[Rfam]
Bacillaceae-1 RNA: a 67-nucleotide RNA from Alteribacillus persepolensis. A search with the family's covariance model found it, with a score of 44 bits. The base pairs follow the family's consensus structure, which is taken from published work.
RNA sequence: CUUGCAGGAAGCCGGCUAAGACCAGCCGCAUCGUGCGGCCAGCGCCGACACCAGCACGUCCUGUGCG
Numbered sequence: 001c002u003u004g005c006a007g008g009a010a011g012c013c014g015g016c017u018a019a020g021a022c023c024a025g026c027c028g029c030a031u032c033g034u035g036c037g038g039c040c041a042g043c044g045c046c047g048a049c050a051c052c053a054g055c056a057c058g059u060c061c062u063g064u065g066c067g
Base pairs, nucleotide, nucleotide: 011049013047014046015045016044025039026038027037028036029035054066055065056064057063